[Rfam]
RNA: Small nucleolar RNA SNORA69
RNA sequence: AAAGCAGGACGCAAUUACAGUGCUAAACUCUUUUGUGGGAGUACUGCCAUUAUCCUGCUGAGAGCAUCUUCUGCUGUGGAGUCUUGAUUACUGUCAUCUCUAUAUGACCAGUGAACGCUCUGCUGUGGAGACAU
Numbered sequence: 001a002a003a004g005c006a007g008g009a010c011g012c013a014a015u016u017a018c019a020g021u022g023c024u025a026a027a028c029u030c031u032u033u034u035g036u037g038g039g040a041g042u043a044c045u046g047c048c049a050u051u052a053u054c055c056u057g058c059u060g061a062g063a064g065c066a067u068c069u070u071c072u073g074c075u076g077u078g079g080a081g082u083c084u085u086g087a088u089u090a091c092u093g094u095c096a097u098c099u100c101u102a103u104a105u106g107a108c109c110a111g112u113g114a115a116c117g118c119u120c121u122g123c124u125g126u127g128g129a130g131a132c133a134u
Stems, first nucleotide, its partner, number of pairs: 003059006018046007028039002071128004076123006090112004094107004